[Rfam]
RNA sequence: CAAAAAGACAUCAUUGAGAUCAGCUCUUAGAUAGCUAUUGUCUUUUUUUUAAGAAACCAAAAAGACAGUAGCUAUCUAAGAGCUGGUCUCAAUGAUGUCUUUU
Dot-bracket structure: .....((((((.((((((((((((((((.(((.........................................))).)))))))))))))))).))))))...